[Rfam]
Nucleotides: 222
Base pairs, nucleotide, nucleotide: 001064002063003062004061005060006059008057010040011039013037041053042052043051044050067208068207069206071204072086073085074084075083076082089202090201091200092199093198094197095196096195097194098193099192104138105137108131109130110129111128112127113126114125115124116218119215120213121212122211140184141183142182143181144180145179146178147177148176152175153174155172156171157170159168160167161166
Number, partner (000 for none) and nucleotide at each position: 001064g002063u003062c004061a005060a006059c007000a008057a009000c010040u011039c012000a013037c014000c015000g016000c017000u018000a019000a020000g021000u022000c023000c024000u025000u026000c027000a028000g029000a030000c031000u032000a033000u034000a035000g036000c037013g038000g039011g040010a041053g042052c043051u044050u045000g046000u047000a048000a049000a050044a051043a052042g053041c054000u055000c056000a057008u058000a059006g060005u061004u062003g063002a064001c065000c066000a067208g068207a069206c070000u071204a072086a073085g074084c075083u076082c077000u078000a079000a080000g081000c082076g083075a084074g085073c086072u087000a088000c089202g090201u091200u092199a093198u094197c095196u096195a097194g098193c099192u100000c101000a102000u103000g104138a105137c106000a107000c108131c109130u110129a111128c112127a113126a114125a115124u116218g117000c118000g119215u120213g121212c122211c123000a124115g125114u126113u127112u128111g129110u130109a131108g132000c133000a134000a135000c136000u137105g138104u139000c140184g141183u142182a143181c144180a145179g146178c147177u148176u149000u150000a151000a152175a153174c154000a155172g156171g157170u158000g159168u160167a161166g162000c163000g164000a165000g166161u167160u168159a169000a170157g171156c172155c173000a174153g175152u176148g177147a178146g179145c180144u181143g182142u183141a184140c185000c186000g187000a188000a189000c190000a191000a192099a193098g194097c195096u196095a197094g198093a199092u200091a201090a202089c203000a204071u205000u206069g207068u208067c209000u210000a211122g212121g213120c214000a215119a216000a217000c218116u219000u220000u221000a222000c